[Rfam]
The record is a 111-nucleotide RNA sequence from Aquabacter sp. L1I39, which matches "SAM-I/IV (S-adenosyl methionine) riboswitch aptamer" in Rfam.

RNA sequence: CUCCUGCAUCAAGAGUUGGGCAAAAGGGCCCGACGCCAACCUGCUUUCCCGAGCAAGGUGGAGCUCCCACGGUGGGAGGAUGUGGCCGAGGCGGCAACGAAACGGGCGAUC
Numbered sequence: 001c002u003c004c005u006g007c008a009u010c011a012a013g014a015g016u017u018g019g020g021c022a023a024a025a026g027g028g029c030c031c032g033a034c035g036c037c038a039a040c041c042u043g044c045u046u047u048c049c050c051g052a053g054c055a056a057g058g059u060g061g062a063g064c065u066c067c068c069a070c071g072g073u074g075g076g077a078g079g080a081u082g083u084g085g086c087c088g089a090g091g092c093g094g095c096a097a098c099g100a101a102a103c104g105g106g107c108g109a110u111c
Stems, first nucleotide, its partner, number of pairs: 006083005015034006036061002040058003043054003048106004085095004
It scores 55 bits against the family's covariance model. NCBI's taxonomy places the organism under Bacteria, Pseudomonadati, Pseudomonadota, Alphaproteobacteria, Aquabacter. Its family is annotated with S-adenosylmethionine metabolic process and regulation of gene expression in the Gene Ontology.